Bacillaceae-1 RNA: a 65-nucleotide RNA from Peribacillus saganii.
RNA sequence: UGACCUCGAGGCCGACUUAAACCACCACGUCCUGUGGCGGCGUCGGCACUAGCACGUCCUGUGCG
Numbered sequence: 001u002g003a004c005c006u007c008g009a010g011g012c013c014g015a016c017u018u019a020a021a022c023c024a025c026c027a028c029g030u031c032c033u034g035u036g037g038c039g040g041c042g043u044c045g046g047c048a049c050u051a052g053c054a055c056g057u058c059c060u061g062u063g064c065g
Stems, first nucleotide, its partner, number of pairs: 011047006025037004052064004
Pairs were carried over by alignment from the consensus structure, which is taken from published work.